[Rfam]
RNA sequence: GUGGCUCUCGCGGGAGAGAUCGAGGUCCUGAUUCCGGGCUUCGGAGCCGAAGGCGCAACCGCCCCGGAAACGCUCAGGCAAAAGGACCGCGACGGCUCA
Numbered sequence: 001g002u003g004g005c006u007c008u009c010g011c012g013g014g015a016g017a018g019a020u021c022g023a024g025g026u027c028c029u030g031a032u033u034c035c036g037g038g039c040u041u042c043g044g045a046g047c048c049g050a051a052g053g054c055g056c057a058a059c060c061g062c063c064c065c066g067g068a069a070a071c072g073c074u075c076a077g078g079c080a081a082a083a084g085g086a087c088c089g090c091g092a093c094g095g096c097u098c099a
Stems, first nucleotide, its partner, number of pairs: 006094001008092006020044009046079003049075002053073003059067002

Shown here is a 99-nucleotide sequence from Brevundimonas abyssalis, a member of the family "Glycine riboswitch aptamer". A search with the family's covariance model found it, with a score of 61 bits. This family represents the bacterial glycine riboswitch.